[Rfam]
RNA sequence: UAGGUAUGCUUAGAGCAAGGUGCCUGAAAAAUGGCUCCCCUGUUUAUAACACACCCAACAGGAAUUUGGGAUCAUUGGGAUGAAGGGCACAAACCUUGUGGCCUCCCUACAAACAAAUUCCAUACAUGU
Number, nucleotide and partner (000 for none) at each position: 001u000002a000003g055004g054005u053006a000007u051008g050009c000010u000011u000012a000013g045014a044015g043016c042017a041018a000019g039020g038021u000022g035023c034024c033025u000026g000027a000028a000029a000030a000031a000032u000033g024034g023035c022036u000037c000038c020039c019040c000041u017042g016043u015044u014045u013046a000047u000048a000049a000050c008051a007052c000053a005054c004055c003056c000057a000058a000059c000060a000061g000062g000063a000064a000065u000066u000067u000068g000069g000070g121071a000072u000073c000074a000075u000076u115077g114078g000079g000080a000081u111082g110083a000084a104085g103086g102087g000088c100089a099090c098091a097092a096093a000094c000095c000096u092097u091098g090099u089100g088101g000102c086103c085104u084105c000106c000107c000108u000109a000110c082111a081112a000113a000114c077115a076116a000117a000118u000119u000120c000121c070122a000123u000124a000125c000126a000127u000128g000129u000

Small nucleolar RNA SNORA11: a 129-nucleotide RNA sequence from Otolemur garnettii. The family's RNA type in Rfam is H/ACA-box small nucleolar RNA. A search with the family's covariance model found it, with a score of 115 bits. Taxonomically the source falls in Otolemur (Eukaryota, Chordata, Craniata, Teleostomi). A reference for the family is Gu et al. (2005), "A novel experimental approach for systematic identification of box H/ACA snoRNAs from eukaryotes", Nucleic Acids Res. Pairs were carried over by alignment from the consensus structure, which was predicted with RNAalifold.